[Rfam]
RNA sequence: AGGGGGUCUGAGGCAGCCGCGUUUUCCUUUGGGGAAGCGAGGAAAGUCCGGGCUCCACGAAGCAAGGGUGGCGGGUAACGCCCGCCGGGAGUGUUUGUUCGCGAGCGCGACUAGGGAAAGUGCCACAGAGAGUAUACCGCCGAUGGUCCGAGCAAGGAUACAGGCAAGGGUGAAAGGGUGCGGUAAAAGCGCACCGGGGCGUUUGGCAACAGCGUCCGCAUGGUAAACCCCACCCGGAGCAAGGCCAAAUAGGGGUCUCGCGCCGACAUGUCGGCAGGCGCGCUUCGCGCUGAGGAGAUCCGGGUUGGCUGCUAGAGCGGCUUGGCAACAGGUCGCCCAGAUGAAUGGCUGCCGCCGCAGCGCUGGUCUUUUGGGAUACCGGUUGCGGAGACAGAACCCGGCUUAUGAUGGCCCCCUGAUA
Numbered sequence: 001a002g003g004g005g006g007u008c009u010g011a012g013g014c015a016g017c018c019g020c021g022u023u024u025u026c027c028u029u030u031g032g033g034g035a036a037g038c039g040a041g042g043a044a045a046g047u048c049c050g051g052g053c054u055c056c057a058c059g060a061a062g063c064a065a066g067g068g069u070g071g072c073g074g075g076u077a078a079c080g081c082c083c084g085c086c087g088g089g090a091g092u093g094u095u096u097g098u099u100c101g102c103g104a105g106c107g108c109g110a111c112u113a114g115g116g117a118a119a120g121u122g123c124c125a126c127a128g129a130g131a132g133u134a135u136a137c138c139g140c141c142g143a144u145g146g147u148c149c150g151a152g153c154a155a156g157g158a159u160a161c162a163g164g165c166a167a168g169g170g171u172g173a174a175a176g177g178g179u180g181c182g183g184u185a186a187a188a189g190c191g192c193a194c195c196g197g198g199g200c201g202u203u204u205g206g207c208a209a210c211a212g213c214g215u216c217c218g219c220a221u222g223g224u225a226a227a228c229c230c231c232a233c234c235c236g237g238a239g240c241a242a243g244g245c246c247a248a249a250u251a252g253g254g255g256u257c258u259c260g261c262g263c264c265g266a267c268a269u270g271u272c273g274g275c276a277g278g279c280g281c282g283c284u285u286c287g288c289g290c291u292g293a294g295g296a297g298a299u300c301c302g303g304g305u306u307g308g309c310u311g312c313u314a315g316a317g318c319g320g321c322u323u324g325g326c327a328a329c330a331g332g333u334c335g336c337c338c339a340g341a342u343g344a345a346u347g348g349c350u351g352c353c354g355c356c357g358c359a360g361c362g363c364u365g366g367u368c369u370u371u372u373g374g375g376a377u378a379c380c381g382g383u384u385g386c387g388g389a390g391a392c393a394g395a396a397c398c399c400g401g402c403u404u405a406u407g408a409u410g411g412c413c414c415c416c417u418g419a420u421a
Stems, first nucleotide, its partner, number of pairs: 001417008011406001012353007020039008044404003048401005053239004062285001066235005071085005086114001087112002115230002120228002122224003137169002139165003144160002147157001177195006196219001197217005203212003243310004253301006277291005317336008
The family of this 421-nucleotide sequence from Erythrobacter sp. YT30 is "Bacterial RNase P class A". The family's RNA type in Rfam is ribozyme. Gene Ontology terms of the family: tRNA processing, ribonuclease P activity and dimeric ribonuclease P complex. From the family's description: Ribonuclease P (RNase P) is a ubiquitous endoribonuclease, found in archaea, bacteria and eukarya as well as chloroplasts and mitochondria. The family's consensus secondary structure is taken from published work.